Rfam assigns this 499-nucleotide part of an RNA from Neocallimastix californiae to the family "Eukaryotic large subunit ribosomal RNA". Clan: LSU clan. Lineage of the source: Eukaryota > chytridiomyceta > Neocallimastigomycota > Neocallimastigomycetes > Neocallimastix.
RNA sequence: CCCUCCGAAGUUUCCCUCAGGAUAGCAGAAACUCAAUCAGUUUUAUGAGGUAAAGCGAAUGAUUAGAGGUCUUAGGACUGAAACAGUCUUAACCUAUUCUCAAACUUUAAAUAUGUAAGAAGCUUAAGUUACUUAACUUUUUUUUGAACUUGGGCAUUUGAAUGAGAGUUUCUAGUGGGCCAUUUUUGGUAAGCAGAACUGGCGAUGCGGGAUGAACCGAUCGUGGGGUUAAAGUGCCGGAAUACACGCUCAUUUAGACACCACAAAAGGUGUUGGUUCAUCUAGACAGCAGGACGGUGGCCAUGGAAGUCGGAAUCCGCUAAGGAGUGUGUAACAACUCACCUGCCGAAUGAACUAGCCCUGAAAAUGGAUGGCGCUCAAGCGUGUUACUCAUACCCCACCGUUAGGGUAAAAGCGAAGCUCUAACGAGUAGGAGGGCGUGGAGGUUUGUGAAGAAGCCUAGGAUGUGAAUCCGGGUGAAACAGCCUCUAGUGCAGAU
Number, nucleotide and partner (000 for none) at each position: 001c438002c437003c436004u435005c434006c433007g000008a000009a000010g000011u024012u000013u022014c021015c020016c000017u000018c000019a000020g015021g014022a013023u000024a011025g000026c000027a173028g172029a171030a170031a169032c168033u167034c000035a000036a000037u000038c000039a000040g000041u120042u119043u118044u117045a116046u115047g114048a000049g000050g000051u000052a000053a108054a106055g105056c000057g000058a000059a000060u102061g101062a100063u000064u000065a097066g000067a095068g094069g093070u000071c000072u092073u091074a090075g089076g088077a087078c000079u085080g000081a000082a000083a000084c000085a079086g000087u077088c076089u075090u074091a073092a072093c069094c068095u067096a000097u065098u000099c000100u062101c061102a060103a000104a000105c055106u054107u000108u053109a000110a000111a000112u000113a000114u047115g046116u045117a044118a043119g042120a041121a000122g155123c154124u153125u152126a151127a150128g149129u148130u147131a000132c000133u000134u000135a000136a000137c000138u000139u000140u000141u000142u000143u000144u000145u000146g000147a130148a129149c128150u127151u126152g125153g124154g123155c122156a000157u000158u000159u000160g000161a000162a000163u000164g000165a000166g000167a033168g032169u031170u030171u029172c028173u027174a000175g000176u000177g000178g000179g203180c202181c201182a200183u000184u198185u197186u196187u195188g194189g000190u000191a000192a000193g000194c188195a187196g186197a185198a184199c000200u182201g181202g180203c179204g000205a000206u000207g000208c219209g218210g217211g000212a000213u000214g000215a000216a000217c210218c209219g208220a000221u000222c000223g401224u400225g399226g398227g397228g000229u395230u000231a000232a000233a391234g390235u389236g000237c000238c000239g000240g000241a000242a388243u000244a387245c000246a000247c384248g383249c382250u000251c000252a000253u000254u000255u000256a000257g000258a000259c000260a000261c000262c000263a000264c000265a000266a000267a000268a362269g361270g360271u000272g359273u358274u357275g356276g355277u354278u353279c352280a351281u350282c000283u000284a000285g000286a000287c000288a000289g346290c345291a344292g343293g342294a000295c319296g318297g317298u000299g000300g000301c313302c312303a000304u000305g000306g000307a000308a000309g000310u000311c000312g302313g301314a000315a000316u000317c297318c296319g295320c324321u000322a000323a000324g320325g340326a000327g000328u000329g338330u337331g000332u000333a000334a000335c000336a000337a330338c329339u000340c325341a000342c293343c292344u291345g290346c289347c000348g000349a000350a281351u280352g279353a278354a277355c276356u275357a274358g273359c272360c270361c269362u268363g000364a000365a000366a000367a000368u000369g000370g000371a000372u000373g000374g000375c000376g000377c000378u000379c000380a000381a000382g249383c248384g247385u000386g000387u244388u242389a235390c234391u233392c000393a000394u000395a229396c000397c227398c226399c225400a224401c223402c428403g427404u426405u425406a424407g423408g422409g421410u420411a000412a000413a000414a000415g000416c000417g000418a000419a000420g410421c409422u408423c407424u406425a405426a404427c403428g402429a000430g000431u000432a000433g006434g005435a004436g003437g002438g001439c494440g000441u491442g490443g489444a488445g487446g486447u485448u484449u000450g483451u482452g000453a000454a000455g000456a000457a000458g478459c477460c000461u000462a000463g000464g473465a472466u471467g000468u000469g000470a000471a466472u465473c464474c000475g000476g000477g459478u458479g000480a000481a000482a451483c450484a448485g447486c446487c445488u444489c443490u442491a441492g000493u000494g439495c000496a000497g000498a000499u000